[Rfam]
RNA sequence: GAAGCGGGUUGGGUGAUCGCCGGUGUUCCUUGGAACACGGGAGGAAAGUCCGGGCUCCGUUAAAAGGGUGCCGGGUAAUCCCCGGCGGGGGAAACCCCAGGGAAAGUGCCACAGAGAGCAGACCGCCGGCCAGGAGCAAUCCGCCGGUAAGGGUGAAAGGGUGCGGUAAGAGCGCACCGCGUGCACCGGUAACGGUCACGGCAUGGUAAACCCCACCUGGAGCAAGGCCAAAUAGGGGGCGCUUGACGCCCCGGGUAGGCUGCUUGAGACCUACGGUAACGUAGGUCCUAGAUGAAUGAUCACCGCUGCGCCCUCCUGGGAACAGGGCGCAACACAGAACCCGGCUUACAGACCCGCUUCGGCC
Numbered sequence: 001g002a003a004g005c006g007g008g009u010u011g012g013g014u015g016a017u018c019g020c021c022g023g024u025g026u027u028c029c030u031u032g033g034a035a036c037a038c039g040g041g042a043g044g045a046a047a048g049u050c051c052g053g054g055c056u057c058c059g060u061u062a063a064a065a066g067g068g069u070g071c072c073g074g075g076u077a078a079u080c081c082c083c084g085g086c087g088g089g090g091g092a093a094a095c096c097c098c099a100g101g102g103a104a105a106g107u108g109c110c111a112c113a114g115a116g117a118g119c120a121g122a123c124c125g126c127c128g129g130c131c132a133g134g135a136g137c138a139a140u141c142c143g144c145c146g147g148u149a150a151g152g153g154u155g156a157a158a159g160g161g162u163g164c165g166g167u168a169a170g171a172g173c174g175c176a177c178c179g180c181g182u183g184c185a186c187c188g189g190u191a192a193c194g195g196u197c198a199c200g201g202c203a204u205g206g207u208a209a210a211c212c213c214c215a216c217c218u219g220g221a222g223c224a225a226g227g228c229c230a231a232a233u234a235g236g237g238g239g240c241g242c243u244u245g246a247c248g249c250c251c252c253g254g255g256u257a258g259g260c261u262g263c264u265u266g267a268g269a270c271c272u273a274c275g276g277u278a279a280c281g282u283a284g285g286u287c288c289u290a291g292a293u294g295a296a297u298g299a300u301c302a303c304c305g306c307u308g309c310g311c312c313c314u315c316c317u318g319g320g321a322a323c324a325g326g327g328c329g330c331a332a333c334a335c336a337g338a339a340c341c342c343g344g345c346u347u348a349c350a351g352a353c354c355c356g357c358u359u360c361g362g363c364c
Stems, first nucleotide, its partner, number of pairs: 001360010011349001012304007020041002023038006046347003050344005055222004066218005071085005086100001087098004101213002106211002108207003123152002125148006133142003160178006179202001180200004185196004226261004236252006268287008
The record is a 364-nucleotide sequence from Magnetococcus marinus, which matches "Bacterial RNase P class A" in Rfam. It is one of the family's seed sequences. By type it is a ribozyme. The family's consensus secondary structure is taken from published work.